Source information
The record is a 76-nucleotide sequence from Myotis myotis, which matches "mir-9229 microRNA precursor family" in Rfam. Rfam links the family to the GO terms miRNA-mediated post-transcriptional gene silencing and RISC complex. The base pairs follow the family's consensus structure, which was predicted with RNAalifold. The family has 7 seed sequences and 27,225 matches in Rfam 15.1.
[Rfam]
RNA sequence: GAGCUGAUCUUAUGGAGCAGGACUUGCUUCAGUGGGGCUUUGGUACUCACUGAGUCUGCCCCUUGAGUGUGUCACU
Number, nucleotide and partner (000 for none) at each position: 001g075002a000003g073004c000005u071006g070007a000008u000009c067010u066011u065012a064013u000014g062015g061016a000017g059018c058019a057020g000021g056022a055023c054024u000025u000026g000027c000028u000029u053030c052031a051032g050033u049034g048035g047036g046037g044038c043039u000040u000041u000042g000043g038044u037045a000046c036047u035048c034049a033050c032051u031052g030053a029054g023055u022056c021057u019058g018059c017060c000061c015062c014063u000064u012065g011066a010067g009068u000069g000070u006071g005072u000073c003074a000075c001076u000